[Rfam]
RNA sequence: CAUUUGAAGGGUUUGAUCCUGGCUCAGAAUGAACGUUGGCGGCGUGGAUUAGGCAUGCAAGUCGAGCGAGAAUCUGUUGAAUGAUCCUUCGGGUGAAUGAUUCAGAGGACAGCGGCAAACGGGGUAGUAAUGCAUAGGUAUGUACCCUCUGGUCGGGAAUAGCCACGGGAAACUGUGGGUAAUGCCCGAUGAUCUGGUGACAGCAAAGGUGUGAUUCCGCCAGAGGAGCAGCCUGUGUGGUAUUAGCUUGUUGGUGAGGUAACGGCUCACCAAGGCUAAGAUGCCUAGGGGGUGUGAGAGCAUGGCCCCCACCACUGGGACUGAGACACUGCCCAGACACCUGCGGGUGGCUGCAGUCGAGAAUCUUCCGCAAUGGGCGAAAGCCUGACGGAGCGACGCCGCGUGCGGGAUGAAGGCCUUCGGGUUGUAAACCGCUGUCAGAGGGGAUGAAAUCGUUGGGGGCUAUCCCCCUUCGUUGACAGAGCCUCAGAGGAAGCGCGGGCUAAGUUCGUGCCAGCAGCCGCGGUAAUACGAACUGCGCGAACGUUAUUCGGAUUCACUG
Numbered sequence: 001c002a003u004u005u006g007a008a009g010g011g012u013u014u015g016a017u018c019c020u021g022g023c024u025c026a027g028a029a030u031g032a033a034c035g036u037u038g039g040c041g042g043c044g045u046g047g048a049u050u051a052g053g054c055a056u057g058c059a060a061g062u063c064g065a066g067c068g069a070g071a072a073u074c075u076g077u078u079g080a081a082u083g084a085u086c087c088u089u090c091g092g093g094u095g096a097a098u099g100a101u102u103c104a105g106a107g108g109a110c111a112g113c114g115g116c117a118a119a120c121g122g123g124g125u126a127g128u129a130a131u132g133c134a135u136a137g138g139u140a141u142g143u144a145c146c147c148u149c150u151g152g153u154c155g156g157g158a159a160u161a162g163c164c165a166c167g168g169g170a171a172a173c174u175g176u177g178g179g180u181a182a183u184g185c186c187c188g189a190u191g192a193u194c195u196g197g198u199g200a201c202a203g204c205a206a207a208g209g210u211g212u213g214a215u216u217c218c219g220c221c222a223g224a225g226g227a228g229c230a231g232c233c234u235g236u237g238u239g240g241u242a243u244u245a246g247c248u249u250g251u252u253g254g255u256g257a258g259g260u261a262a263c264g265g266c267u268c269a270c271c272a273a274g275g276c277u278a279a280g281a282u283g284c285c286u287a288g289g290g291g292g293u294g295u296g297a298g299a300g301c302a303u304g305g306c307c308c309c310c311a312c313c314a315c316u317g318g319g320a321c322u323g324a325g326a327c328a329c330u331g332c333c334c335a336g337a338c339a340c341c342u343g344c345g346g347g348u349g350g351c352u353g354c355a356g357u358c359g360a361g362a363a364u365c366u367u368c369c370g371c372a373a374u375g376g377g378c379g380a381a382a383g384c385c386u387g388a389c390g391g392a393g394c395g396a397c398g399c400c401g402c403g404u405g406c407g408g409g410a411u412g413a414a415g416g417c418c419u420u421c422g423g424g425u426u427g428u429a430a431a432c433c434g435c436u437g438u439c440a441g442a443g444g445g446g447a448u449g450a451a452a453u454c455g456u457u458g459g460g461g462g463c464u465a466u467c468c469c470c471c472u473u474c475g476u477u478g479a480c481a482g483a484g485c486c487u488c489a490g491a492g493g494a495a496g497c498g499c500g501g502g503c504u505a506a507g508u509u510c511g512u513g514c515c516a517g518c519a520g521c522c523g524c525g526g527u528a529a530u531a532c533g534a535a536c537u538g539c540g541c542g543a544a545c546g547u548u549a550u551u552c553g554g555a556u557u558c559a560c561u562g
Base pairs, nucleotide, nucleotide: 009025010024011023012022013021027552028551029550030549032548033547034546035545036544037543039402040401041400042399043398044397045395046394052358053357054356056355057354058353061116062115063114066113067112070087072085073084074083123313124312125311132238133237134236135235136234137233138232139231141230142229146226147225148224149223150222151221152220154188155187156186157185163178164177165176166175167174168173194203195202196201208218209217239285240284241283246276247275248274251273252272253271254270255269256268257267258266288310289309290308291307292303293302294301295300315336316335317334318333319332338349339348340347341346366392368391369390370389374387375386376385377384378383405435406434407433408432415426416425417424418423439493441488442487443486444485449480455474496541497540498539499538500537507536508535509534510533511532517524518523

Shown here is a 562-nucleotide part of an RNA from uncultured myxobacterium HF0200_08J13, a member of the family "Bacterial small subunit ribosomal RNA". The sequence is in the family's curated seed alignment.